[Rfam]
RNA sequence: GGGCUGGCUUUAGCUCAGCGGUUACUUCGACAAUGCUUCAGUUCGCUACUUAGCCACUCGUGGUCGAGUUCGAGCACCAUCAGCCAAUCGCUUGCAAAUCUGUGAGUGGUUGGUUCGAGGCCCGCGGGCGCUCUCCAGUCCUUUU
Numbered sequence: 001g002g003g004c005u006g007g008c009u010u011u012a013g014c015u016c017a018g019c020g021g022u023u024a025c026u027u028c029g030a031c032a033a034u035g036c037u038u039c040a041g042u043u044c045g046c047u048a049c050u051u052a053g054c055c056a057c058u059c060g061u062g063g064u065c066g067a068g069u070u071c072g073a074g075c076a077c078c079a080u081c082a083g084c085c086a087a088u089c090g091c092u093u094g095c096a097a098a099u100c101u102g103u104g105a106g107u108g109g110u111u112g113g114u115u116c117g118a119g120g121c122c123c124g125c126g127g128g129c130g131c132u133c134u135c136c137a138g139u140c141c142u143u144u145u
Base pairs, nucleotide, nucleotide: 002140003139004138005137006136007135013129014128015127016126018125019124020123021122026119027118028117029116030115